Rfam assigns this 169-nucleotide RNA sequence from Clostridium saccharobutylicum to the family "Lysine riboswitch aptamer".
The base pairs follow the family's consensus structure, which is taken from published work.
NCBI's taxonomy places the organism under Bacteria, Bacillati, Eubacteriales, Clostridium, Clostridium saccharobutylicum.
[Rfam]
RNA sequence: ACCUGGGGUAGAGGUGCUGUAAUAAAGAGUAAUCAUAAGGAGUUGGCAGACGAUGAUUUAUGUUAAAAGGGAUUAUGGCCGAAGGAAUAAGUUAUUUGCAGUGAUUUAUUUCUGGGUAUUCAUAUAAUAUAUGGAUAACUGUCACGAAAAGUGUUGAGCUACAAGGUAC
Numbered sequence: 001a002c003c004u005g006g007g008g009u010a011g012a013g014g015u016g017c018u019g020u021a022a023u024a025a026a027g028a029g030u031a032a033u034c035a036u037a038a039g040g041a042g043u044u045g046g047c048a049g050a051c052g053a054u055g056a057u058u059u060a061u062g063u064u065a066a067a068a069g070g071g072a073u074u075a076u077g078g079c080c081g082a083a084g085g086a087a088u089a090a091g092u093u094a095u096u097u098g099c100a101g102u103g104a105u106u107u108a109u110u111u112c113u114g115g116g117u118a119u120u121c122a123u124a125u126a127a128u129a130u131a132u133g134g135a136u137a138a139c140u141g142u143c144a145c146g147a148a149a150a151g152u153g154u155u156g157a158g159c160u161a162c163a164a165g166g167u168a169c
Stems, first nucleotide, its partner, number of pairs: 016079008032064001034062006083113012114140002117137008146169001148167001